Rfam assigns this 104-nucleotide sequence from Spinacia oleracea to the family "Small nucleolar RNA snoR99". On this family, see Marker et al., Curr Biol 2002: "Experimental RNomics: identification of 140 candidates for small non-messenger RNAs in the plant Arabidopsis thaliana". Rfam classes the family as an H/ACA-box small nucleolar RNA. It scores 43 bits against the family's covariance model. Rfam links the family to the GO terms RNA processing and nucleolus.
RNA sequence: GUGCUAAUGAGGAUAUACAAGGUCCCCAAAUUAAUAUUCCAUUCUUCAACUUUAUCAGCUGACUUGAAUUUUUCUUUCAGUUGAUUUUCAUGGUUGGUACAUUU
Numbered sequence: 001g002u003g004c005u006a007a008u009g010a011g012g013a014u015a016u017a018c019a020a021g022g023u024c025c026c027c028a029a030a031u032u033a034a035u036a037u038u039c040c041a042u043u044c045u046u047c048a049a050c051u052u053u054a055u056c057a058g059c060u061g062a063c064u065u066g067a068a069u070u071u072u073u074c075u076u077u078c079a080g081u082u083g084a085u086u087u088u089c090a091u092g093g094u095u096g097g098u099a100c101a102u103u104u
Stems, first nucleotide, its partner, number of pairs: 039097003043093001054085008